[Rfam]
RNA: c-di-GMP-I riboswitch aptamer
Organism: Sediminibacillus albus
RNA sequence: UUAGUAUAAGGGCAAACCUAAUGAAAGUUAGGGACGCAAAGCUAGAGGGGCUAAGGAUAAUAAAUCUAGGCCAGCCAGUUGCCGGU
Numbered sequence: 001u002u003a004g005u006a007u008a009a010g011g012g013c014a015a016a017c018c019u020a021a022u023g024a025a026a027g028u029u030a031g032g033g034a035c036g037c038a039a040a041g042c043u044a045g046a047g048g049g050g051c052u053a054a055g056g057a058u059a060a061u062a063a064a065u066c067u068a069g070g071c072c073a074g075c076c077a078g079u080u081g082c083c084g085g086u
Stems, first nucleotide, its partner, number of pairs: 012037002017032006040080004047076002049072003056066003